Burkholderia RNA 7 (anti-hemB): an 87-nucleotide sequence from Ottowia flava. The base pairs follow the family's consensus structure, which is taken from published work.
RNA sequence: UCCCCCGCUUUUCCUCCCUGAGCGGGAGCCUUGACGUGUGACAGCAGACAGGCUUUUUGACCCCGGCCUCGUGCCGGGGUUUUUUAU
Numbered sequence: 001u002c003c004c005c006c007g008c009u010u011u012u013c014c015u016c017c018c019u020g021a022g023c024g025g026g027a028g029c030c031u032u033g034a035c036g037u038g039u040g041a042c043a044g045c046a047g048a049c050a051g052g053c054u055u056u057u058u059g060a061c062c063c064c065g066g067c068c069u070c071g072u073g074c075c076g077g078g079g080u081u082u083u084u085u086a087u
Stems, first nucleotide, its partner, number of pairs: 004026006028053004033049001060080008
A search with the family's covariance model found it, with a score of 65 bits. On this family, see Weinberg et al., Nucleic Acids Res 2007: "Identification of 22 candidate structured RNAs in bacteria using the CMfinder comparative genomics pipeline".